[Rfam]
Plastid-ycf2 5UTR RNA: a 71-nucleotide sequence from Ziziphus jujuba. The family has 204 seed sequences and 3,521 matches in Rfam 15.1. About the family: Plastid ycf2 is a non-coding RNA (ncRNA) recognised in plastids. It was found in the prime untranslated region (5UTR) of ycf2 genes, it presents a tRNA-like motif which suggests it can be involved in mRNA maturation, particularly involved in defining the precise 5' end of the transcript.
RNA sequence: GUGCAAUCAAUAGGAAUUGAACCUAUCAAUUUGGCAAUUAUGAGUUGGGUGCUUUAUUCAGCCAUGGAUGC
Numbered sequence: 001g002u003g004c005a006a007u008c009a010a011u012a013g014g015a016a017u018u019g020a021a022c023c024u025a026u027c028a029a030u031u032u033g034g035c036a037a038u039u040a041u042g043a044g045u046u047g048g049g050u051g052c053u054u055u056a057u058u059c060a061g062c063c064a065u066g067g068a069u070g071c
Base pairs, nucleotide, nucleotide: 003071004070005069007067008066010026011025012024013023014022040065041064042063044062045061046060047059048058049057050056051055